[Rfam]
RNA sequence: UGUGCAUCGUGGUCAAAUGCUCAGACUCCUUGGUGGCUGCUUACGCACCACGGAUGUUUGAGCAUGUGCUAUGGUGUCUA
Number, nucleotide and partner (000 for none) at each position: 001u000002g000003u000004g077005c076006a075007u074008c073009g072010u071011g070012g069013u000014c068015a067016a000017a065018u064019g063020c062021u061022c060023a059024g058025a057026c056027u054028c053029c052030u000031u000032g000033g051034u050035g049036g048037c000038u047039g046040c045041u000042u000043a000044c000045g040046c039047a038048c036049c035050a034051c033052g029053g028054a027055u000056g026057u025058u024059u023060g022061a021062g020063c019064a018065u017066g000067u015068g014069c012070u011071a010072u009073g008074g007075u006076g005077u004078c000079u000080a000
RNA: mir-105 microRNA precursor family